[Rfam]
RNA sequence: GGGCAAAGGUUGGGCAAGAUUCUGGCAAAACUUCGAUUCAGGCUGCAUCAAAGUUUCACCCAAGUUUCACACAACUCUUGCCA
Dot-bracket structure: .(((((.(((((.(..(((((..((..((((((.................))))))..))..)))))..).))))).))))).

This 83-nucleotide RNA from Caenorhabditis elegans belongs to the Rfam family "mir-266 microRNA precursor family". Its family is annotated with miRNA-mediated post-transcriptional gene silencing and RISC complex in the Gene Ontology. The family's consensus secondary structure was predicted with RNAalifold. Lineage of the source: Eukaryota > Metazoa > Eumetazoa > Rhabditomorpha > Caenorhabditis.